[Rfam]
RNA sequence: UAGAGUACCUCUUUCAGAAUUUUUCUAAGAGGAUUUUUGACCUUGGUCAGAAAUCCCAA
Numbered sequence: 001u002a003g004a005g006u007a008c009c010u011c012u013u014u015c016a017g018a019a020u021u022u023u024u025c026u027a028a029g030a031g032g033a034u035u036u037u038u039g040a041c042c043u044u045g046g047u048c049a050g051a052a053a054u055c056c057c058a059a
Base pairs, nucleotide, nucleotide: 031056032055033054034053035052036051037050038049039048040047041046
RNA: U7 small nuclear RNA
Organism: Mus musculus